RNA sequence: CGUCUGAAGCGCGACUGGCGCAUUGGGUGGGAGAGACCACCGGGGAGCGGAAAGCGGAGGGCCGCGCGCCUGGGUCCUCCGC
Numbered sequence: 001c002g003u004c005u006g007a008a009g010c011g012c013g014a015c016u017g018g019c020g021c022a023u024u025g026g027g028u029g030g031g032a033g034a035g036a037c038c039a040c041c042g043g044g045g046a047g048c049g050g051a052a053a054g055c056g057g058a059g060g061g062c063c064g065c066g067c068g069c070c071u072g073g074g075u076c077c078u079c080c081g082c
Stems, first nucleotide, its partner, number of pairs: 003051002010049003015044002017070005027040004059077005
Shown here is an 82-nucleotide RNA from Streptosporangium sandarakinum, a member of the family "ZMP/ZTP riboswitch aptamer (pfl RNA motif)". Taxonomically the source falls in Streptosporangium (Bacteria, Actinomycetes, Streptosporangiales, Streptosporangiaceae). The match comes from Rfam's covariance-model search (50 bits).